[Rfam]
RNA sequence: GUAGAAUGAUGAAACCCAUGCGUGUCAGCUGACUCUGCGCAGCCCUGCUGUGGGUCACUCUGCUCAGUGUUCUGCUGACCGGAGGUUGCCCUACAUCAGGGACGCAGACGCAUGAUCAUACGUUCAUGGUUCUGAUUAC
Numbered sequence: 001g002u003a004g005a006a007u008g009a010u011g012a013a014a015c016c017c018a019u020g021c022g023u024g025u026c027a028g029c030u031g032a033c034u035c036u037g038c039g040c041a042g043c044c045c046u047g048c049u050g051u052g053g054g055u056c057a058c059u060c061u062g063c064u065c066a067g068u069g070u071u072c073u074g075c076u077g078a079c080c081g082g083a084g085g086u087u088g089c090c091c092u093a094c095a096u097c098a099g100g101g102a103c104g105c106a107g108a109c110g111c112a113u114g115a116u117c118a119u120a121c122g123u124u125c126a127u128g129g130u131u132c133u134g135a136u137u138a139c
Base pairs, nucleotide, nucleotide: 001139002138003137004136043101044100045099046098047097049095050094051093
RNA: Small nucleolar RNA SNORD10
Organism: Menidia menidia